[Rfam]
RNA sequence: UCGCGUCCAGCGCCGUAGGCAGGAGCGGGGGACCCAAGGUUUGCGCCGGCAACGGCAGUUGAGCAGUCGAGCACAGGGUGGCGGCUGACAACGGUCGGAACCGGCUUGGGGUGAAGUCGCGCGCAACGAAAGCGCGACCGGGCAACUCACGCGGCCCGAACCCGACAGCUCACCUCGUAGGCGUCGGUGAGGGGAUCA
Numbered sequence: 001u002c003g004c005g006u007c008c009a010g011c012g013c014c015g016u017a018g019g020c021a022g023g024a025g026c027g028g029g030g031g032a033c034c035c036a037a038g039g040u041u042u043g044c045g046c047c048g049g050c051a052a053c054g055g056c057a058g059u060u061g062a063g064c065a066g067u068c069g070a071g072c073a074c075a076g077g078g079u080g081g082c083g084g085c086u087g088a089c090a091a092c093g094g095u096c097g098g099a100a101c102c103g104g105c106u107u108g109g110g111g112u113g114a115a116g117u118c119g120c121g122c123g124c125a126a127c128g129a130a131a132g133c134g135c136g137a138c139c140g141g142g143c144a145a146c147u148c149a150c151g152c153g154g155c156c157c158g159a160a161c162c163c164g165a166c167a168g169c170u171c172a173c174c175u176c177g178u179a180g181g182c183g184u185c186g187g188u189g190a191g192g193g194g195a196u197c198a
Stems, first nucleotide, its partner, number of pairs: 001181002006024003025178006035108004109163003117137006140157004
The family of this 198-nucleotide RNA from Streptomyces jeddahensis is "c-di-AMP riboswitch aptamer (ydaO/yuaA leader)".
Rfam describes the family as follows. This family represents a conserved RNA structure found upstream of the ydaO and yuaA genes in Bacillus subtilis and related genes in other bacteria. The ydaO/yuaA element is thought to act as a genetic 'off' switch for the ydaO and yuaA genes in its native state. It is believed that the element may be triggered during osmotic shock leading to activation of ydaO, a predicted amino acid transporter gene, and members of the yuaA-yubG operon which code for KtrA and KtrB K+ transporters.
Its family is annotated with cyclic-di-AMP binding and regulation of gene expression in the Gene Ontology.
NCBI's taxonomy places the organism under Bacteria, Actinomycetota, Kitasatosporales, Streptomycetaceae, Streptomyces.